[Rfam]
RNA sequence: CAUCUACUGUUUUCUAUUGGUGCAUAGAGUCCUUGUUUUAUUUCUUCUAGCACCAUGAGAAAGCAGUAUUUG
Numbered sequence: 001c002a003u004c005u006a007c008u009g010u011u012u013u014c015u016a017u018u019g020g021u022g023c024a025u026a027g028a029g030u031c032c033u034u035g036u037u038u039u040a041u042u043u044c045u046u047c048u049a050g051c052a053c054c055a056u057g058a059g060a061a062a063g064c065a066g067u068a069u070u071u072g
Stems, first nucleotide, its partner, number of pairs: 001072002007066009018055005025049004
Annotation:
mir-29 microRNA precursor family: a 72-nucleotide RNA sequence from Lytechinus variegatus. This family represents the microRNA (miRNA) precursors mir-29. Rfam links the family to the GO terms gene silencing by miRNA and RISC complex. On this family, see Ambros, Cell 2001: "microRNAs: tiny regulators with great potential". The family has 168 seed sequences and 3,328 matches in Rfam 15.1.